[Rfam]
RNA: leuA-Halobacteria RNA
RNA sequence: CCCGACGGAGGAUAGAGGAAGUCGCCGCGAGGCGACUGGGUGUGAAAUUCGCC
Numbered sequence: 001c002c003c004g005a006c007g008g009a010g011g012a013u014a015g016a017g018g019a020a021g022u023c024g025c026c027g028c029g030a031g032g033c034g035a036c037u038g039g040g041u042g043u044g045a046a047a048u049u050c051g052c053c
Stems, first nucleotide, its partner, number of pairs: 020037007